[Rfam]
RNA sequence: CCAUGGGCUGACGCCCAUGGCUACAUCAUAUCGCCACUUCGUGGCU
Numbered sequence: 001c002c003a004u005g006g007g008c009u010g011a012c013g014c015c016c017a018u019g020g021c022u023a024c025a026u027c028a029u030a031u032c033g034c035c036a037c038u039u040c041g042u043g044g045c046u
Stems, first nucleotide, its partner, number of pairs: 001020008033045005
Rfam assigns this 46-nucleotide sequence from Novipirellula maiorica to the family "Acido-Lenti-1 RNA". The organism belongs to Novipirellula maiorica, within Bacteria. It is annotated as a small RNA. The match comes from Rfam's covariance-model search (50 bits).